Shown here is a 110-nucleotide sequence from Erinaceus europaeus, a member of the family "Small nucleolar RNA U6-53/MBII-28". NCBI's taxonomy places the organism under Eukaryota, Craniata, Vertebrata, Eutheria, Erinaceus. The sequence is in the family's curated seed alignment. Rfam 15.1 lists 780 matches to the family in 403 species. A reference for the family is Huttenhofer et al. (2001), "RNomics: an experimental approach that identifies 201 candidates for novel, small, non-messenger RNAs in mouse", EMBO J.
RNA sequence: CCUCAGUGAUGAGUUGCCAUGCUAAUACUGAGCCACCAGGCAGGGCAGUGUUGCCCUGGUUUGGGUGUCGGUGAGUUUAACAAAACUUCUCAUGUGGAGACCUGAGAGGC
Numbered sequence: 001c002c003u004c005a006g007u008g009a010u011g012a013g014u015u016g017c018c019a020u021g022c023u024a025a026u027a028c029u030g031a032g033c034c035a036c037c038a039g040g041c042a043g044g045g046c047a048g049u050g051u052u053g054c055c056c057u058g059g060u061u062u063g064g065g066u067g068u069c070g071g072u073g074a075g076u077u078u079a080a081c082a083a084a085a086c087u088u089c090u091c092a093u094g095u096g097g098a099g100a101c102c103u104g105a106g107a108g109g110c
Stems, first nucleotide, its partner, number of pairs: 001109004041058005